[Rfam]
RNA sequence: AGCGCUGCUGGCGCUAUACAAAGAAAAGCCGUUAGAAUAAGGUUAACGGCCUACGGUUUCGUAACGCCGCUGCAAUAAAGGGACGGGGCAUAUAGUAUGUAUCUAUUUCAAAUAGUAUAUGUCCUAAAGGGUAGAAGAUAUUGCGACGCCUGUACCGCUUGGCGAUGAAAUAGCGGACGAAUUAGCAAUAACGGGUAUGGUUGAAUCGCCGGAGUUAGAUUCCGGAUAGCUGCGAAAGUGGCGGGAUUAUAUAGAAUAUCAGCAAUGAUAUAUAAGUAGGGCAUGGAUUUAGACACUUAUUAAUAUAUACGAUAGUAAAAUAUCGGCUUUAAAUA
Dot-bracket structure: (((((.....)))))............((((((...........))))))...((((........))))................(((.(((((.(((.............))).))))).)))..............((((((.......((.((((..............))))))......))))))..................(((((.......)))))...(((((....))))).............((((((....)))))).(((((.................)))))..........(((((......)))))..........
Numbered sequence: 001a002g003c004g005c006u007g008c009u010g011g012c013g014c015u016a017u018a019c020a021a022a023g024a025a026a027a028g029c030c031g032u033u034a035g036a037a038u039a040a041g042g043u044u045a046a047c048g049g050c051c052u053a054c055g056g057u058u059u060c061g062u063a064a065c066g067c068c069g070c071u072g073c074a075a076u077a078a079a080g081g082g083a084c085g086g087g088g089c090a091u092a093u094a095g096u097a098u099g100u101a102u103c104u105a106u107u108u109c110a111a112a113u114a115g116u117a118u119a120u121g122u123c124c125u126a127a128a129g130g131g132u133a134g135a136a137g138a139u140a141u142u143g144c145g146a147c148g149c150c151u152g153u154a155c156c157g158c159u160u161g162g163c164g165a166u167g168a169a170a171u172a173g174c175g176g177a178c179g180a181a182u183u184a185g186c187a188a189u190a191a192c193g194g195g196u197a198u199g200g201u202u203g204a205a206u207c208g209c210c211g212g213a214g215u216u217a218g219a220u221u222c223c224g225g226a227u228a229g230c231u232g233c234g235a236a237a238g239u240g241g242c243g244g245g246a247u248u249a250u251a252u253a254g255a256a257u258a259u260c261a262g263c264a265a266u267g268a269u270a271u272a273u274a275a276g277u278a279g280g281g282c283a284u285g286g287a288u289u290u291a292g293a294c295a296c297u298u299a300u301u302a303a304u305a306u307a308u309a310c311g312a313u314a315g316u317a318a319a320a321u322a323u324c325g326g327c328u329u330u331a332a333a334u335a
Stems, first nucleotide, its partner, number of pairs: 001015005028050006054069004086124003090120005096114003139190006152178002155176004209225005229242005256271006273299005310325005
Rfam assigns this 335-nucleotide RNA to the family "throat-1 RNA".